[Rfam]
RNA sequence: UGGAAUAAUGUAGAUAAGGGAAGUCGGCAAAUUAGAUUCGUAACUUCGGGAAAAGAAUUGGCUCUAGAGAUUGGGCUAGUCGGGUUGUUACGUGAUGCUUAUGGGCUGCGUUCGUGACUGGGCGGCGAGCUUCGGUGAGCUGUUCGGGCUAGUAGCGUGGCCCGUAGGUGGAUCGUUUCAGCUUGGUCUGCGUUCGUUUCGGCGUGCGUAGUCUUCGGCUAGCGCUUAACAAUCGAAUCUAGAACUGGUACGGACUGGGGGAAUCCGACUGUCUAAUUAAAACAGAGGAGACAGAUGGUCUCUGAAAGACGUUGACUGUCUCUGAUUUCUGCCCAGUGCUCUGAAUGUUAAUUUAAGGAAAUUUGAGUAAGCGCGGGUAAACGGCGGGAGUAACUAUGACUCUCUUAAGGUAGCCAAAUGCCUCGUCAUUUAAUUAGUGACGCGUAUGAAUGGAUUAACGAGAUUCCCACUGUCCCUAACUACUAUCUAGCGAAACCACAGCCAAGGGAACGGGCUUGGCAAA
Numbered sequence: 001u002g003g004a005a006u007a008a009u010g011u012a013g014a015u016a017a018g019g020g021a022a023g024u025c026g027g028c029a030a031a032u033u034a035g036a037u038u039c040g041u042a043a044c045u046u047c048g049g050g051a052a053a054a055g056a057a058u059u060g061g062c063u064c065u066a067g068a069g070a071u072u073g074g075g076c077u078a079g080u081c082g083g084g085u086u087g088u089u090a091c092g093u094g095a096u097g098c099u100u101a102u103g104g105g106c107u108g109c110g111u112u113c114g115u116g117a118c119u120g121g122g123c124g125g126c127g128a129g130c131u132u133c134g135g136u137g138a139g140c141u142g143u144u145c146g147g148g149c150u151a152g153u154a155g156c157g158u159g160g161c162c163c164g165u166a167g168g169u170g171g172a173u174c175g176u177u178u179c180a181g182c183u184u185g186g187u188c189u190g191c192g193u194u195c196g197u198u199u200c201g202g203c204g205u206g207c208g209u210a211g212u213c214u215u216c217g218g219c220u221a222g223c224g225c226u227u228a229a230c231a232a233u234c235g236a237a238u239c240u241a242g243a244a245c246u247g248g249u250a251c252g253g254a255c256u257g258g259g260g261g262a263a264u265c266c267g268a269c270u271g272u273c274u275a276a277u278u279a280a281a282a283c284a285g286a287g288g289a290g291a292c293a294g295a296u297g298g299u300c301u302c303u304g305a306a307a308g309a310c311g312u313u314g315a316c317u318g319u320c321u322c323u324g325a326u327u328u329c330u331g332c333c334c335a336g337u338g339c340u341c342u343g344a345a346u347g348u349u350a351a352u353u354u355a356a357g358g359a360a361a362u363u364u365g366a367g368u369a370a371g372c373g374c375g376g377g378u379a380a381a382c383g384g385c386g387g388g389a390g391u392a393a394c395u396a397u398g399a400c401u402c403u404c405u406u407a408a409g410g411u412a413g414c415c416a417a418a419u420g421c422c423u424c425g426u427c428a429u430u431u432a433a434u435u436a437g438u439g440a441c442g443c444g445u446a447u448g449a450a451u452g453g454a455u456u457a458a459c460g461a462g463a464u465u466c467c468c469a470c471u472g473u474c475c476c477u478a479a480c481u482a483c484u485a486u487c488u489a490g491c492g493a494a495a496c497c498a499c500a501g502c503c504a505a506g507g508g509a510a511c512g513g514g515c516u517u518g519g520c521a522a523a
Stems, first nucleotide, its partner, number of pairs: 001489004010483004015478002018475003035059005044049001060246002063243006069234005075223009084182003090176002097169014111152002116149001118147009247251001259468007266460002270284003287323008298310004327454003331385003336382002338378004343374001346373003353366005386404006405409001425441006502519005
Dot-bracket structure: ((((.....((((.((.(((..............(((((....(....).....)))))((.(((((((((((.((((((((((((...((.....((((((((((((((((...(.(((((((((............))))))))).).))...)))))))))))))).....))...)))................................)))))))))......)))))...)))))).))(...).......(((((((((..(((.........)))..((((((((...((((.....)))).....))))))))...(((.(((..((((((.(..(((....(((((....)))))....))))))))..)))))((((((.......))))))(...)...............((((((.....))))))..........)))....)).)))))))....))).)).))))..))))............(((((........)))))....
RNA: Eukaryotic large subunit ribosomal RNA, nucleotides 2111 to 2633